[Rfam]
RNA sequence: GAUGACGCUUUUUAACGACUCACACGCUUCGACACAGUACGGCCGGGUCCCGAAAGGGUGCCGUAUGGGAAGUGUGGACGCAUAAC
Numbered sequence: 001g002a003u004g005a006c007g008c009u010u011u012u013u014a015a016c017g018a019c020u021c022a023c024a025c026g027c028u029u030c031g032a033c034a035c036a037g038u039a040c041g042g043c044c045g046g047g048u049c050c051c052g053a054a055a056g057g058g059u060g061c062c063g064u065a066u067g068g069g070a071a072g073u074g075u076g077g078a079c080g081c082a083u084a085a086c
Stems, first nucleotide, its partner, number of pairs: 023076008035067002038065006049058003

Shown here is an 86-nucleotide RNA from Legionella geestiana, a member of the family "t44 RNA". It is annotated as a small RNA. The source organism's lineage runs through Bacteria, Pseudomonadati, Gammaproteobacteria, Legionellales and Legionella. It scores 52 bits against the family's covariance model. The literature on the family includes a 2002 paper in Nucleic Acids Res by Tjaden et al., "Transcriptome analysis of Escherichia coli using high-density oligonucleotide probe arrays".